A member of the RNA family "Fluoride riboswitch aptamer (crcB RNA motif)" from Variovorax sp. Sphag1AA, 62 nucleotides long.
RNA sequence: ACCAGUAAGGGAGAUGGCAUACCUCCUUUAACCGCCUAACGGCUGAUGAUGCCUACCAAGCU
Numbered sequence: 001a002c003c004a005g006u007a008a009g010g011g012a013g014a015u016g017g018c019a020u021a022c023c024u025c026c027u028u029u030a031a032c033c034g035c036c037u038a039a040c041g042g043c044u045g046a047u048g049a050u051g052c053c054u055a056c057c058a059a060g061c062u
Stems, first nucleotide, its partner, number of pairs: 010026004016053005034043003
Lineage of the source: Bacteria > Betaproteobacteria > Burkholderiales > Comamonadaceae > Variovorax.
Its family is annotated with positive regulation of gene expression and response to fluoride in the Gene Ontology.
A reference for the family is Zhao et al. (2017), "An excited state underlies gene regulation of a transcriptional riboswitch", Nat Chem Biol.
It scores 54 bits against the family's covariance model.